[Rfam]
RNA: Bacillus sRNA ncr1575
Organism: Bacillus sp. FJAT-27231
Nucleotides: 201
Stems, first nucleotide, its partner, number of pairs: 016112004023106004029100003042097012058080009118149001120147001125142006170196011
Number, partner (000 for none) and nucleotide at each position: 001000u002000a003000c004000u005000a006000a007000a008000c009000a010000a011000u012000a013000g014000a015000a016112g017111g018110g019109a020000u021000g022000a023106u024105g025104g026103g027000u028000g029100g030099a031098c032000g033000a034000u035000g036000g037000a038000c039000a040000a041000a042097u043096a044095a045094u046093c047092u048091u049090a050089u051088u052087u053086u054000c055000u056000a057000c058080a059079u060078u061077u062076g063075a064074a065073a066072u067000c068000g069000c070000a071000u072066a073065u074064u075063u076062c077061a078060a079059a080058u081000c082000a083000c084000a085000c086053a087052a088051a089050a090049u091048a092047g093046g094045a095044u096043u097042a098031g099030u100029c101000u102000g103026c104025c105024c106023a107000u108000u109019u110018u111017c112016u113000a114000u115000a116000u117000a118149c119000u120147g121000u122000a123000c124000a125142g126141c127140u128139a129138u130137u131000g132000a133000a134000u135000c136000a137130a138129a139128u140127a141126g142125c143000u144000u145000a146000u147120u148000u149118g150000a151000a152000c153000a154000a155000c156000g157000c158000a159000a160000a161000a162000a163000u164000g165000c166000g167000g168000c169000u170196a171195a172194u173193c174192c175191u176190u177189c178188c179187a180186a181000a182000u183000c184000a185000a186180u187179u188178g189177g190176g191175a192174g193173g194172a195171u196170u197000u198000u199000u200000u201000u